[Rfam]
RNA sequence: UCAGAUGGUUUCUAGGGUUCCGGCUGACCGCAGGGUGGUCGAGUGACUGGUCCGAGAGAAACCGCCAGAUAGUCUUAGCGUUGCCCGGCAUCAGCCUAAUGCAUCUGGUACACGGCGGGAUAAAAGCCCGGGAGGA
Numbered sequence: 001u002c003a004g005a006u007g008g009u010u011u012c013u014a015g016g017g018u019u020c021c022g023g024c025u026g027a028c029c030g031c032a033g034g035g036u037g038g039u040c041g042a043g044u045g046a047c048u049g050g051u052c053c054g055a056g057a058g059a060a061a062c063c064g065c066c067a068g069a070u071a072g073u074c075u076u077a078g079c080g081u082u083g084c085c086c087g088g089c090a091u092c093a094g095c096c097u098a099a100u101g102c103a104u105c106u107g108g109u110a111c112a113c114g115g116c117g118g119g120a121u122a123a124a125a126g127c128c129c130g131g132g133a134g135g136a
Stems, first nucleotide, its partner, number of pairs: 007063006015053002020050002022047001023044003064109007111131001113134001117129003
Dot-bracket structure: ......((((((..((...((((((................)))..).)).))....))))))(((((((................................))))))).(.[...(((.......))).)..]..
Guanidine-I riboswitch aptamer: a 136-nucleotide RNA from Nodosilinea sp. LEGE 07088. Taxonomically the source falls in Nodosilinea (Bacteria, Bacillati, Cyanobacteriota, Cyanophyceae). From the family's description: This family represents a conserved RNA structure found upstream of the ykkC and yxkD genes in Bacillus subtilis and related genes in other bacteria. The function of this family is unclear although it has been suggested that it may function to switch on efflux pumps and detoxification systems in response to harmful environmental molecules.